[Rfam]
Description:
The record is a 65-nucleotide RNA sequence from Mesocricetus auratus, which matches "Small nucleolar RNA SNORD109A" in Rfam. The family has 7 seed sequences and 412 matches in Rfam 15.1. On this family, see Runte et al., Hum Mol Genet 2001: "The IC-SNURF-SNRPN transcript serves as a host for multiple small nucleolar RNA species and as an antisense RNA for UBE3A". Its family is annotated with RNA processing and nucleolus in the Gene Ontology.
RNA sequence: GGAUCGAUGAUGACAACAUGUCUCUGAGGACGCUGAUCGACCAGACCUAUGCCACUCUGAGUUCC
Numbered sequence: 001g002g003a004u005c006g007a008u009g010a011u012g013a014c015a016a017c018a019u020g021u022c023u024c025u026g027a028g029g030a031c032g033c034u035g036a037u038c039g040a041c042c043a044g045a046c047c048u049a050u051g052c053c054a055c056u057c058u059g060a061g062u063u064c065c
Stems, first nucleotide, its partner, number of pairs: 001065003005061001